[Rfam]
RNA sequence: CGCGGUCCUCGGUAGUGGCUUCCGGAAUCCGCAUUGCGCGGGCGUCCGUGAGCCUCGAUCGAAGACCGAA
Numbered sequence: 001c002g003c004g005g006u007c008c009u010c011g012g013u014a015g016u017g018g019c020u021u022c023c024g025g026a027a028u029c030c031g032c033a034u035u036g037c038g039c040g041g042g043c044g045u046c047c048g049u050g051a052g053c054c055u056c057g058a059u060c061g062a063a064g065a066c067c068g069a070a
Base pairs, nucleotide, nucleotide: 003068004067005066006065007064009062010061011060012059013058017054018053019052020051021050023048024047025046026045030044031043032042
RNA: Actino-pnp RNA
Organism: Rothia terrae